[Rfam]
RNA sequence: GGAAAAAAAUAGCUUAAUCCCGGGAUGGGAGCGGAGGAACCAUUUAUGGGGUGAAUCCUGUGCUUGUGUGCAGGUAGGGUUUUAACCUUUCGACCCGAACCCGUCAGCUAACUUCGUAAGCUAUAAAGAAAGGGAGG
Numbered sequence: 001g002g003a004a005a006a007a008a009a010u011a012g013c014u015u016a017a018u019c020c021c022g023g024g025a026u027g028g029g030a031g032c033g034g035a036g037g038a039a040c041c042a043u044u045u046a047u048g049g050g051g052u053g054a055a056u057c058c059u060g061u062g063c064u065u066g067u068g069u070g071c072a073g074g075u076a077g078g079g080u081u082u083u084a085a086c087c088u089u090u091c092g093a094c095c096c097g098a099a100c101c102c103g104u105c106a107g108c109u110a111a112c113u114u115c116g117u118a119a120g121c122u123a124u125a126a127a128g129a130a131a132g133g134g135a136g137g
Stems, first nucleotide, its partner, number of pairs: 011122004018030003031117006041048002049102003057074004077096004